Rfam assigns this 107-nucleotide RNA from Symbiodinium sp. CCMP2592 to the family "Mitochondrial DNA control region secondary structure A". The family's RNA type in Rfam is antisense RNA. Taxonomically the source falls in Symbiodinium (Eukaryota, Alveolata, Suessiales, Symbiodiniaceae).

RNA sequence: CAUACAUAUGUAUGUGCAUAAGUACGUACAUACGUACAUACUUUCUUACUUACAUACAUACAUAUAUACAUUGUGUAUGCAUGCUGCAUGUCAUAUGUACGUAUGCA
Numbered sequence: 001c002a003u004a005c006a007u008a009u010g011u012a013u014g015u016g017c018a019u020a021a022g023u024a025c026g027u028a029c030a031u032a033c034g035u036a037c038a039u040a041c042u043u044u045c046u047u048a049c050u051u052a053c054a055u056a057c058a059u060a061c062a063u064a065u066a067u068a069c070a071u072u073g074u075g076u077a078u079g080c081a082u083g084c085u086g087c088a089u090g091u092c093a094u095a096u097g098u099a100c101g102u103a104u105g106c107a
Base pairs, nucleotide, nucleotide: 005097006096007095008094009093010092012089013088016084017083018082019081022037023036024035025034026033027032038059039058043054064078065077066076067075068074